[Rfam]
RNA: TPP riboswitch aptamer (THI element)
RNA sequence: GUAAAGACAAAGGGGUGCCCGGACGGGCUGAGAUCAUACCCUCGAACCUGAUGCAGUUAGUACUGCCGUAGGAAUUGGAUAUUGUUUUCUU
Numbered sequence: 001g002u003a004a005a006g007a008c009a010a011a012g013g014g015g016u017g018c019c020c021g022g023a024c025g026g027g028c029u030g031a032g033a034u035c036a037u038a039c040c041c042u043c044g045a046a047c048c049u050g051a052u053g054c055a056g057u058u059a060g061u062a063c064u065g066c067c068g069u070a071g072g073a074a075u076u077g078g079a080u081a082u083u084g085u086u087u088u089c090u091u
Stems, first nucleotide, its partner, number of pairs: 008077003011042004016036001017028004047072004053066004